[Rfam]
The record is a 98-nucleotide RNA from Staphylococcus massiliensis, which matches "SAM riboswitch aptamer (S box leader)" in Rfam. Clan: SAM clan. Pairs were carried over by alignment from the consensus structure, which is taken from published work. Its family is annotated with regulation of gene expression in the Gene Ontology. The organism belongs to Staphylococcus massiliensis, within Bacteria.
RNA sequence: UGCUUAUUAAGAGAAGUGGAGGGACUUGGCCCGAUGAGACUUCAGCAACCGAUCUCAAGACACGGUGCUACAACCAACGUUCAUUCGAUUGAUAAGUC
Numbered sequence: 001u002g003c004u005u006a007u008u009a010a011g012a013g014a015a016g017u018g019g020a021g022g023g024a025c026u027u028g029g030c031c032c033g034a035u036g037a038g039a040c041u042u043c044a045g046c047a048a049c050c051g052a053u054c055u056c057a058a059g060a061c062a063c064g065g066u067g068c069u070a071c072a073a074c075c076a077a078c079g080u081u082c083a084u085u086c087g088a089u090u091g092a093u094a095a096g097u098c
Stems, first nucleotide, its partner, number of pairs: 002097007013043005021032003026077004044069004049065002051061001053059001073090001078087002